[Rfam]
RNA sequence: AAAGGGGUAGCCGAAAACCUAUGAGAGUAGGCA
Numbered sequence: 001a002a003a004g005g006g007g008u009a010g011c012c013g014a015a016a017a018c019c020u021a022u023g024a025g026a027g028u029a030g031g032c033a
Base pairs, nucleotide, nucleotide: 003020004019005018010032011031012030
Shown here is a 33-nucleotide RNA from Filimonas effusa, a member of the family "DUF805b RNA". Pairs were carried over by alignment from the consensus structure, which is taken from published work. Rfam classes the family as a cis-regulatory element.